[Rfam]
Rfam assigns this 306-nucleotide sequence from Pseudonaja textilis to the family "7SK RNA". Lineage of the source: Eukaryota > Euteleostomi > Serpentes > Colubroidea > Pseudonaja. Its Rfam clan is "7SK clan". A search with the family's covariance model found it, with a score of 240 bits. The family's RNA type in Rfam is non-coding RNA gene.
RNA sequence: GGAUGUGAGGGCGAUCUGGCUGUGACAUCUGUCACCCCAUUGAUUGCCAGGGUUGAUUCGGCUGAUCUGGCUGGCUAGGCGGGUGUCCCCUUCUUCCCUCACCGCUCCAUGUGCGUCCCUCCCGAAGCUGCACGCUUGGUGGAAGAGGACGACCAUCCCAGAUAGAAAGAGUGUACCGAUCUUCGGUCAAGGGUAUACGAUAGCUGCGCUCCCCUGCUAGAACUUCUAAACAAGCUCAAAAUGCAUUAGUAUAGGGGUGUCAAACCCACGUCGUCACAAUAGUAUCACAUGACGUAUUGGGACUUU
Numbered sequence: 001g002g003a004u005g006u007g008a009g010g011g012c013g014a015u016c017u018g019g020c021u022g023u024g025a026c027a028u029c030u031g032u033c034a035c036c037c038c039a040u041u042g043a044u045u046g047c048c049a050g051g052g053u054u055g056a057u058u059c060g061g062c063u064g065a066u067c068u069g070g071c072u073g074g075c076u077a078g079g080c081g082g083g084u085g086u087c088c089c090c091u092u093c094u095u096c097c098c099u100c101a102c103c104g105c106u107c108c109a110u111g112u113g114c115g116u117c118c119c120u121c122c123c124g125a126a127g128c129u130g131c132a133c134g135c136u137u138g139g140u141g142g143a144a145g146a147g148g149a150c151g152a153c154c155a156u157c158c159c160a161g162a163u164a165g166a167a168a169g170a171g172u173g174u175a176c177c178g179a180u181c182u183u184c185g186g187u188c189a190a191g192g193g194u195a196u197a198c199g200a201u202a203g204c205u206g207c208g209c210u211c212c213c214c215u216g217c218u219a220g221a222a223c224u225u226c227u228a229a230a231c232a233a234g235c236u237c238a239a240a241a242u243g244c245a246u247u248a249g250u251a252u253a254g255g256g257g258u259g260u261c262a263a264a265c266c267c268a269c270g271u272c273g274u275c276a277c278a279a280u281a282g283u284a285u286c287a288c289a290u291g292a293c294g295u296a297u298u299g300g301g302a303c304u305u306u
Stems, first nucleotide, its partner, number of pairs: 001108003005102007013093002018090002024087010035074002037070003042067004046062003117173001118169001120167001121165001122139004127135002140162001147158003203265001205263001209259001212256005226249002233247002